A member of the RNA family "tRNA" from Dehalogenimonas formicexedens, 74 nucleotides long. Taxonomically the source falls in Dehalogenimonas (Bacteria, Chloroflexota, Dehalococcoidales, Dehalococcoidaceae). Rfam links the family to the GO term triplet codon-amino acid adaptor activity. The base pairs follow the family's consensus structure, which is taken from published work. It scores 63 bits against the family's covariance model.
RNA sequence: GGCGCAUUCGUCUAGCGGCCUAGGACGCUGCCCUCUCAAGGCAGAGAUCACGGGUUCGAAUCCCGUAUGCGCUA
Numbered sequence: 001g002g003c004g005c006a007u008u009c010g011u012c013u014a015g016c017g018g019c020c021u022a023g024g025a026c027g028c029u030g031c032c033c034u035c036u037c038a039a040g041g042c043a044g045a046g047a048u049c050a051c052g053g054g055u056u057c058g059a060a061u062c063c064c065g066u067a068u069g070c071g072c073u074a
Base pairs, nucleotide, nucleotide: 001073002072003071004070005069006068007067010026011025012024013023028044029043030042031041032040050066051065052064053063054062
It is annotated as a transfer RNA.